[Rfam]
RNA sequence: UCGUGUUACAAACCGGUGCUAAAGGGUCCUGCCCAACGGCUACUGACAUGUGUUGUCGGGGCAGAGACCCUUUAGCACCGGUUUGUGUUACAAA
Numbered sequence: 001u002c003g004u005g006u007u008a009c010a011a012a013c014c015g016g017u018g019c020u021a022a023a024g025g026g027u028c029c030u031g032c033c034c035a036a037c038g039g040c041u042a043c044u045g046a047c048a049u050g051u052g053u054u055g056u057c058g059g060g061g062c063a064g065a066g067a068c069c070c071u072u073u074a075g076c077a078c079c080g081g082u083u084u085g086u087g088u089u090a091c092a093a094a
Base pairs, nucleotide, nucleotide: 003091004090005089007087008086009085010084011083012082013081014080015079016078017077018076019075020074021073022072023071024070025069026068027067030064032060033059034058036056037055044048
A member of the RNA family "MIR5387 microRNA precursor family" from Sorghum bicolor, 94 nucleotides long.
NCBI's taxonomy places the organism under Eukaryota, Streptophyta, commelinids, Poales, Sorghum.
It scores 87 bits against the family's covariance model.